[Rfam]
Shown here is a 188-nucleotide RNA sequence from Olea europaea, a member of the family "MIR159 microRNA precursor family". The organism belongs to Olea europaea, within Eukaryota. For this family Rfam cites "Computational identification of plant microRNAs and their targets, including a stress-induced miRNA" (Jones-Rhoades and Bartel, Mol Cell, 2004). Its family is annotated with miRNA-mediated post-transcriptional gene silencing and RISC complex in the Gene Ontology.

RNA sequence: AACAGUGGAAGGGAGCUCCCUUCAGUCCAAGUACAGAAAGCUUAAGAUUCAACUUGACUCUCGCAUCAUUCACUCAGUUACCGUGUAAAACUCAUCAACUACACAGCAUUUGGAUGAAUGAGUCAACAGCAAAUUGAAUCCUACGGCCUCCCAUAACUGGACUGAAGAAAGCUCUCUUCUAAAGUCGC
Number, nucleotide and partner (000 for none) at each position: 001a000002a000003c000004a000005g000006u000007g000008g000009a000010a000011g000012g000013g174014a173015g172016c171017u170018c000019c000020c167021u000022u000023c164024a163025g162026u161027c160028c159029a158030a000031g000032u000033a000034c000035a000036g151037a000038a000039a000040g000041c000042u000043u000044a000045a000046g000047a000048u000049u000050c000051a000052a000053c000054u000055u000056g000057a000058c129059u128060c000061u126062c000063g124064c000065a000066u000067c120068a119069u118070u117071c000072a000073c000074u000075c112076a000077g000078u000079u000080a000081c000082c000083g000084u000085g000086u000087a000088a000089a000090a000091c000092u000093c000094a000095u000096c000097a000098a000099c000100u000101a000102c000103a000104c000105a000106g000107c000108a000109u000110u000111u000112g075113g000114a000115u000116g000117a070118a069119u068120g067121a000122g000123u000124c063125a000126a061127c000128a059129g058130c000131a000132a000133a000134u000135u000136g000137a000138a000139u000140c000141c000142u000143a000144c000145g000146g000147c000148c000149u000150c000151c036152c000153a000154u000155a000156a000157c000158u029159g028160g027161a026162c025163u024164g023165a000166a000167g020168a000169a000170a017171g016172c015173u014174c013175u000176c000177u000178u000179c000180u000181a000182a000183a000184g000185u000186c000187g000188c000